[Rfam]
RNA sequence: ACCCCAUGAUAUAAGCCGGCAUGAAGAAUGUAUUCCAAUUCUUUAUGUGACUAUGAUUGGGAAAAUGAAAUCUGCUCCGAUGUGUGUAUGUUAUGAAAUGAUUUUAAUCACAUUUCUGUACAAAGUAAAUUUCAGAGUACA
Dot-bracket structure: ..................((((((((..............))))))))..........................((..((........(((...(.((((..........)))).)...))).........))))......
Numbered sequence: 001a002c003c004c005c006a007u008g009a010u011a012u013a014a015g016c017c018g019g020c021a022u023g024a025a026g027a028a029u030g031u032a033u034u035c036c037a038a039u040u041c042u043u044u045a046u047g048u049g050a051c052u053a054u055g056a057u058u059g060g061g062a063a064a065a066u067g068a069a070a071u072c073u074g075c076u077c078c079g080a081u082g083u084g085u086g087u088a089u090g091u092u093a094u095g096a097a098a099u100g101a102u103u104u105u106a107a108u109c110a111c112a113u114u115u116c117u118g119u120a121c122a123a124a125g126u127a128a129a130u131u132u133c134a135g136a137g138u139a140c141a
Stems, first nucleotide, its partner, number of pairs: 019048008075135002079133002089122003095116001097114004
The family of this 141-nucleotide sequence from Lucilia cuprina is "Small nucleolar RNA snoR639/H1". Rfam links the family to the GO terms RNA processing and nucleolus. The family's RNA type in Rfam is H/ACA-box small nucleolar RNA. A search with the family's covariance model found it, with a score of 75 bits. Pairs were carried over by alignment from the consensus structure. Rfam's curators write: snoR639 or snoH1 belongs to the H/ACA class of snoRNAs which are thought to guide the sites of modification of uridines to pseudouridines. snoH1 is found in an intron of the mfl gene in Drosophila. The literature on the family includes a 1999 paper in J Cell Biol by Giordano et al., "minifly, a Drosophila gene required for ribosome biogenesis".